[Rfam]
Shown here is a 118-nucleotide RNA sequence from Candidatus Schmidhempelia bombi, a member of the family "TPP riboswitch aptamer (THI element)". Gene Ontology term of the family: thiamine pyrophosphate binding. NCBI's taxonomy places the organism under Bacteria, Pseudomonadota, Gammaproteobacteria, Candidatus Schmidhempelia, Candidatus Schmidhempelia bombi. Rfam's curators write: Vitamin B(1) in its active form thiamin pyrophosphate (TPP) is an essential coenzyme that is synthesised by coupling of pyrimidine and thiazole moieties in bacteria.

RNA sequence: CUGUUCUCAUCGGGGUGCAUUUUGCUGAGAUUUGUUUUAGAUCAUCUGCUCAAGAAACAAAAACCCGUCGAACCUGAACCGGCUAAUACCGGCGGAGGGAUUUGGGAGUCAUGAAAAG
Number, nucleotide and partner (000 for none) at each position: 001c000002u000003g000004u000005u000006c106007u105008c104009a103010u000011c067012g066013g065014g064015g000016u061017g025018c024019a023020u000021u000022u000023u019024g018025c017026u000027g000028a000029g000030a000031u000032u060033u059034g058035u057036u056037u055038u054039a000040g000041a000042u000043c000044a000045u000046c000047u000048g000049c000050u000051c000052a000053a000054g038055a037056a036057a035058c034059a033060a032061a016062a000063a000064c014065c013066c012067g011068u000069c000070g000071a000072a000073c098074c097075u096076g000077a000078a000079c092080c091081g090082g089083c000084u000085a000086a000087u000088a000089c082090c081091g080092g079093c000094g000095g000096a075097g074098g073099g000100a000101u000102u000103u009104g008105g007106g006107a000108g000109u000110c000111a000112u000113g000114a000115a000116a000117a000118g000